About this RNA
The family of this 291-nucleotide RNA sequence from Synechococcus sp. SynAce01 is "5' ureB small RNA". Taxonomically the source falls in Synechococcus (Bacteria, Bacillati, Cyanobacteriota, Synechococcales). On this family, see Wen et al., J Bacteriol 2013: "Helicobacter pylori 5'ureB-sRNA, a cis-encoded antisense small RNA, negatively regulates ureAB expression by transcription termination". Gene Ontology term of the family: negative regulation of gene expression.
[Rfam]
RNA sequence: CGGUUUCGAUCUGCUGCGGGCAGAUGAAGUGGAUGUGGGUGUCGAGGGCUCCGGCGGUGAGGAUGUGACCCUCGCCAGCGAUCGCCUCGGUGCCGGGCCCGAUGACGAUCGUGACGCCAUCGGUGAUGUCGGGAUUGCCCGCCUUGCCGAUCGCGCAGAUGCGGCCGUCGCGCAGGCCGAUGUCGGCCUUGACCACCCCCCACCAAUCGAGGAUCAGGGCGUUGGUGAUCACCGUGUCGACGGCGCCAGCGGCGCGGGUGGUCUGUGCCUGGCCCAUGCCGUCGCGGAUCA
Numbered sequence: 001c002g003g004u005u006u007c008g009a010u011c012u013g014c015u016g017c018g019g020g021c022a023g024a025u026g027a028a029g030u031g032g033a034u035g036u037g038g039g040u041g042u043c044g045a046g047g048g049c050u051c052c053g054g055c056g057g058u059g060a061g062g063a064u065g066u067g068a069c070c071c072u073c074g075c076c077a078g079c080g081a082u083c084g085c086c087u088c089g090g091u092g093c094c095g096g097g098c099c100c101g102a103u104g105a106c107g108a109u110c111g112u113g114a115c116g117c118c119a120u121c122g123g124u125g126a127u128g129u130c131g132g133g134a135u136u137g138c139c140c141g142c143c144u145u146g147c148c149g150a151u152c153g154c155g156c157a158g159a160u161g162c163g164g165c166c167g168u169c170g171c172g173c174a175g176g177c178c179g180a181u182g183u184c185g186g187c188c189u190u191g192a193c194c195a196c197c198c199c200c201c202a203c204c205a206a207u208c209g210a211g212g213a214u215c216a217g218g219g220c221g222u223u224g225g226u227g228a229u230c231a232c233c234g235u236g237u238c239g240a241c242g243g244c245g246c247c248a249g250c251g252g253c254g255c256g257g258g259u260g261g262u263c264u265g266u267g268c269c270u271g272g273c274c275c276a277u278g279c280c281g282u283c284g285c286g287g288a289u290c291a
Stems, first nucleotide, its partner, number of pairs: 002290002005286001007284003011158004016154002018076002022072002030053003035049001040045001057069002078147001081144001084142002089138001092135001094133001096130003103125002106122004111117002163273001165272003170268007177260001186220006200209001223257001225255001234246003